[Rfam]
RNA sequence: CUGAUCAACGCGUGCGGGUCAAUUGCGGCUUGCAACACCCGGUCUCCCUCAACACGCCUCCCGGUAUGGAGGUCGCCGAGGGGGAACGCGUGACCGUCAG
Numbered sequence: 001c002u003g004a005u006c007a008a009c010g011c012g013u014g015c016g017g018g019u020c021a022a023u024u025g026c027g028g029c030u031u032g033c034a035a036c037a038c039c040c041g042g043u044c045u046c047c048c049u050c051a052a053c054a055c056g057c058c059u060c061c062c063g064g065u066a067u068g069g070a071g072g073u074c075g076c077c078g079a080g081g082g083g084g085a086a087c088g089c090g091u092g093a094c095c096g097u098c099a100g
Base pairs, nucleotide, nucleotide: 001100002099003098004097005096008091009090010089011088012087013086015041016040017039018038023035024034025033026032027031043085044084045083046082047081053080055078056077
RNA: L4-Archaeoglobi ribosomal protein leades